RNA sequence: UGCACAUGAUGAUUGAAUCAAGGCUUGUUUCUCUACAUUCGCAUAUGCCGCCUAAGAGCUUUUGCCUUGCCCGGCUUGAGAGCUGCUGCUAAAUCCUUGGAUGUCUGAUGCA
Numbered sequence: 001u002g003c004a005c006a007u008g009a010u011g012a013u014u015g016a017a018u019c020a021a022g023g024c025u026u027g028u029u030u031c032u033c034u035a036c037a038u039u040c041g042c043a044u045a046u047g048c049c050g051c052c053u054a055a056g057a058g059c060u061u062u063u064g065c066c067u068u069g070c071c072c073g074g075c076u077u078g079a080g081a082g083c084u085g086c087u088g089c090u091a092a093a094u095c096c097u098u099g100g101a102u103g104u105c106u107g108a109u110g111c112a
Base pairs, nucleotide, nucleotide: 001112002111003110004109058083059082060081061080062079063078